[Rfam]
RNA sequence: UCCAUGGCAAAUAGAUAACAACCUAAGAGAGUUGUGUUUAUCCCUGUAUGGUCGUAAUUUUAGAAGUUUAAGCAAAUAAAGAUUGUAUGGCUAAGCUUUUGUUUAAAAAUAAAAUAAAAGAUGUUGAAAUAGUUAUUUGUUUAAAUGGAAUAGGUUAACCGUAUGACCUUGAUUUGAAAAAAUUUUAAAAUAAACUCUAGGUUUCAAAUGUUUUAAUUUAGAGUUACGGUAUU
Numbered sequence: 001u002c003c004a005u006g007g008c009a010a011a012u013a014g015a016u017a018a019c020a021a022c023c024u025a026a027g028a029g030a031g032u033u034g035u036g037u038u039u040a041u042c043c044c045u046g047u048a049u050g051g052u053c054g055u056a057a058u059u060u061u062a063g064a065a066g067u068u069u070a071a072g073c074a075a076a077u078a079a080a081g082a083u084u085g086u087a088u089g090g091c092u093a094a095g096c097u098u099u100u101g102u103u104u105a106a107a108a109a110u111a112a113a114a115u116a117a118a119a120g121a122u123g124u125u126g127a128a129a130u131a132g133u134u135a136u137u138u139g140u141u142u143a144a145a146u147g148g149a150a151u152a153g154g155u156u157a158a159c160c161g162u163a164u165g166a167c168c169u170u171g172a173u174u175u176g177a178a179a180a181a182a183u184u185u186u187a188a189a190a191u192a193a194a195c196u197c198u199a200g201g202u203u204u205c206a207a208a209u210g211u212u213u214u215a216a217u218u219u220a221g222a223g224u225u226a227c228g229g230u231a232u233u
Base pairs, nucleotide, nucleotide: 002051003050004049005048006047011041012040013039014038015037016036018035019034020033021032022031023029066146067145068144069143070142071141072140073139082134083129084128094125095124152169153168154167155166156165158230159229160228161227162226163225164190171184172183173182174181175180195223196222197221198220199219200218201217202216203215